[Rfam]
RNA sequence: UAUAGCGAAAUUCUGUUAUUGUAGUUUUAUAUGCUGGUAGUACUUAGGAGGGAGUAUUAAACGUUCUACCAGGAGAGGUAUUGUUCGGUAUCAAUGUCAGACAUAAAAAAAGCGCCUUACGGCGCUUUUUUCGACAU
Numbered sequence: 001u002a003u004a005g006c007g008a009a010a011u012u013c014u015g016u017u018a019u020u021g022u023a024g025u026u027u028u029a030u031a032u033g034c035u036g037g038u039a040g041u042a043c044u045u046a047g048g049a050g051g052g053a054g055u056a057u058u059a060a061a062c063g064u065u066c067u068a069c070c071a072g073g074a075g076a077g078g079u080a081u082u083g084u085u086c087g088g089u090a091u092c093a094a095u096g097u098c099a100g101a102c103a104u105a106a107a108a109a110a111a112g113c114g115c116c117u118u119a120c121g122g123c124g125c126u127u128u129u130u131u132c133g134a135c136a137u
Stems, first nucleotide, its partner, number of pairs: 109128008